The record is a 91-nucleotide sequence from Nelumbo nucifera, which matches "Small nucleolar RNA R160" in Rfam. Rfam's curators write: snoR160 is a C/D box small nucleolar RNA, which acts as a methylation guide for 25S ribosomal RNA in plants. snoR160 has been alternatively named snoZ270 in rice. On this family, see Chen et al., Nucleic Acids Res 2003: "The high diversity of snoRNAs in plants: identification and comparative study of 120 snoRNA genes from Oryza sativa". Its family is annotated with RNA processing and nucleolus in the Gene Ontology. The base pairs follow the family's consensus structure. It scores 51 bits against the family's covariance model.
RNA sequence: AGCAAGAUGAUGAGAUAAUACUUCUGAACUGUUAAUGGUGAAGAAACGCAUAUUACAAGUUUAUAAUUGCCUUCAAAGUUCUCUGAUUGCU
Number, nucleotide and partner (000 for none) at each position: 001a091002g090003c089004a088005a087006g000007a000008u000009g000010a000011u000012g000013a000014g000015a000016u000017a000018a000019u000020a000021c000022u000023u000024c000025u000026g000027a000028a000029c000030u000031g000032u000033u000034a000035a000036u000037g000038g000039u000040g000041a000042a000043g000044a000045a000046a000047c000048g000049c000050a000051u000052a000053u000054u000055a000056c000057a000058a000059g000060u000061u000062u000063a000064u000065a000066a000067u000068u000069g000070c000071c000072u000073u000074c000075a000076a000077a000078g000079u000080u000081c000082u000083c000084u000085g000086a000087u005088u004089g003090c002091u001